[Rfam]
RNA sequence: GCCCGUUUAGCUCAGUGGCAGAGCGUCUGUCUCGUAAAAGAAUGAGCAAACAGAAGGUCAUCAGUUCAAUGCUGAUAGUGGGCA
Dot-bracket structure: (((((((..((((.......)))).(((((...................))))).....(((((.......)))))))))))).
Shown here is an 84-nucleotide RNA from Mesorhabditis belari, a member of the family "tRNA".